[Rfam]
RNA sequence: CUUUUAUCAAGAACGGUGGAGGGACUGGCCCUGUGAAACCUAGCAACAGCCAAUAAAUCGUAUUGGAAUUGUGCUAAAUCCUGCAAGAAUGUAUUUUCUUGAGAGAUGAGAG
Numbered sequence: 001c002u003u004u005u006a007u008c009a010a011g012a013a014c015g016g017u018g019g020a021g022g023g024a025c026u027g028g029c030c031c032u033g034u035g036a037a038a039c040c041u042a043g044c045a046a047c048a049g050c051c052a053a054u055a056a057a058u059c060g061u062a063u064u065g066g067a068a069u070u071g072u073g074c075u076a077a078a079u080c081c082u083g084c085a086a087g088a089a090u091g092u093a094u095u096u097u098c099u100u101g102a103g104a105g106a107u108g109a110g111a112g
Stems, first nucleotide, its partner, number of pairs: 001112008013041001015040003021031003025083001027081002042075004047071002050066005079104001084101006
The record is a 112-nucleotide sequence from Sarcina ventriculi, which matches "SAM riboswitch aptamer (S box leader)" in Rfam. Rfam links the family to the GO term regulation of gene expression.